[Rfam]
RNA sequence: GAUUCAGGUGAUGAGUAUUGGAUUACAAUUUUCUCACGACGGUCGUCUGAGACACGCCAGUGUCGAGCACUGAUGUUAAACGAUCCAAUGUACCUGAUGAUU
Numbered sequence: 001g002a003u004u005c006a007g008g009u010g011a012u013g014a015g016u017a018u019u020g021g022a023u024u025a026c027a028a029u030u031u032u033c034u035c036a037c038g039a040c041g042g043u044c045g046u047c048u049g050a051g052a053c054a055c056g057c058c059a060g061u062g063u064c065g066a067g068c069a070c071u072g073a074u075g076u077u078a079a080a081c082g083a084u085c086c087a088a089u090g091u092a093c094c095u096g097a098u099g100a101u102u
Stems, first nucleotide, its partner, number of pairs: 001102004053062003
This 102-nucleotide RNA sequence from Corymbia citriodora belongs to the Rfam family "Small nucleolar RNA Z161/Z228". Rfam links the family to the GO terms nucleolus and RNA processing. The family is grouped with related families in Rfam's "SNORD35 clan". The family's consensus secondary structure was predicted with PFOLD. A reference for the family is Chen et al. (2003), "The high diversity of snoRNAs in plants: identification and comparative study of 120 snoRNA genes from Oryza sativa", Nucleic Acids Res.